[Rfam]
RNA sequence: GUGAUCGCCAGGGGGCGUCCUCGAGAAAGGCGAGGGCUGAGAAGGUACCCCUUGAACCUGAUCCAGGUCAUGCUGGCGGAGGGAUUGGCGAACGGAGCUUCU
Dot-bracket structure: .....(((((((((.((((((((.......))))))).......)..)))).....(((...((((......))))...)))...)))))............
Annotation: TPP riboswitch aptamer (THI element): a 102-nucleotide RNA from Desulfosoma caldarium. NCBI's taxonomy places the organism under Bacteria, Pseudomonadati, Thermodesulfobacteriota, Syntrophobacteria, Desulfosoma. Gene Ontology term of the family: thiamine pyrophosphate binding.